RNA sequence: GCGGUCUUAAUGAUGGUCUACGCUGAAACGAAUAUAUUUCGGGGCGGAGACCUGAGCAUCUGACCGU
Numbered sequence: 001g002c003g004g005u006c007u008u009a010a011u012g013a014u015g016g017u018c019u020a021c022g023c024u025g026a027a028a029c030g031a032a033u034a035u036a037u038u039u040c041g042g043g044g045c046g047g048a049g050a051c052c053u054g055a056g057c058a059u060c061u062g063a064c065c066g067u
Stems, first nucleotide, its partner, number of pairs: 001067005015052005021046004030040003
This 67-nucleotide RNA sequence from Branchiostoma lanceolatum belongs to the Rfam family "Selenocysteine insertion sequence 1". The incorporation of selenocysteine into a protein sequence is directed by an in-frame UGA codon (usually a stop codon) within the coding region of the mRNA. Selenoprotein mRNAs contain a conserved secondary structure in the 3' UTR that is required for the distinction of UGA stop from UGA selenocysteine. The selenocysteine insertion sequence (SECIS) is around 60 nt in length and adopts a hairpin structure which is sufficiently well-defined and conserved to act as a computational screen for selenoprotein genes. On this family, see Walczak et al., RNA 1996: "A novel RNA structural motif in the selenocysteine insertion element of eukaryotic selenoprotein mRNAs". The family's consensus secondary structure is taken from published work. The match comes from Rfam's covariance-model search (38 bits).